[Rfam]
RNA: Listeria sRNA rli28
RNA sequence: UUGGUUAUGAUACAAUGACUGAGUAGAAAGUGAUAUGGACGGUGGCUAUCCUGGAGAGGUGGUGGUGCUUAUGAGAAUAAGUUCCGAAAUCUUAGUGAAAGGAGACGCCUUUUGCCAUUUGAGGGCUGGAUCGCCUUGAUUCUAGUAUUUGCCCCAGUUUUGAAAGUAGCUAUUGAGUUAC
Numbered sequence: 001u002u003g004g005u006u007a008u009g010a011u012a013c014a015a016u017g018a019c020u021g022a023g024u025a026g027a028a029a030g031u032g033a034u035a036u037g038g039a040c041g042g043u044g045g046c047u048a049u050c051c052u053g054g055a056g057a058g059g060u061g062g063u064g065g066u067g068c069u070u071a072u073g074a075g076a077a078u079a080a081g082u083u084c085c086g087a088a089a090u091c092u093u094a095g096u097g098a099a100a101g102g103a104g105a106c107g108c109c110u111u112u113u114g115c116c117a118u119u120u121g122a123g124g125g126c127u128g129g130a131u132c133g134c135c136u137u138g139a140u141u142c143u144a145g146u147a148u149u150u151g152c153c154c155c156a157g158u159u160u161u162g163a164a165a166g167u168a169g170c171u172a173u174u175g176a177g178u179u180a181c
Stems, first nucleotide, its partner, number of pairs: 042155001044153003061093002063086003067082002114134002118130004160176004165171002